[Rfam]
RNA: T-box leader
Organism: Herbinix luporum
RNA sequence: UAAAAAGCUGUGAAAAGGAGUAUUAAGAGAAUAUGUGCUUAUAGAGAGCUGCCGGUAGGUGGAAGGCAGUAGCAACAGUCUCCCAACUCGCCUUGGAGCUUCCCAGUUGAAUAUGUAGUAGGCUGGGACGGUUUUUCCCGUUAUAGAAAAUGAGUGCAUAAUAAGCAUGUGAUUUAUGCUUAUUAUGAAAUAGAGUGGUACCACGGAAUUUAACCUUUCGUCUCUUGU
Numbered sequence: 001u002a003a004a005a006a007g008c009u010g011u012g013a014a015a016a017g018g019a020g021u022a023u024u025a026a027g028a029g030a031a032u033a034u035g036u037g038c039u040u041a042u043a044g045a046g047a048g049c050u051g052c053c054g055g056u057a058g059g060u061g062g063a064a065g066g067c068a069g070u071a072g073c074a075a076c077a078g079u080c081u082c083c084c085a086a087c088u089c090g091c092c093u094u095g096g097a098g099c100u101u102c103c104c105a106g107u108u109g110a111a112u113a114u115g116u117a118g119u120a121g122g123c124u125g126g127g128a129c130g131g132u133u134u135u136u137c138c139c140g141u142u143a144u145a146g147a148a149a150a151u152g153a154g155u156g157c158a159u160a161a162u163a164a165g166c167a168u169g170u171g172a173u174u175u176a177u178g179c180u181u182a183u184u185a186u187g188a189a190a191u192a193g194a195g196u197g198g199u200a201c202c203a204c205g206g207a208a209u210u211u212a213a214c215c216u217u218u219c220g221u222c223u224c225u226u227g228u
Base pairs, nucleotide, nucleotide: 007099008098015094016093017092018091027082028081029080030079037073038072039071048070049069050068051067052066053065102127103126104125105124106123107122108121129140130139131138157187158186159185160184161183162182163181164180165179166178167177168176169175192225193224194223195222203221204220205219206218207217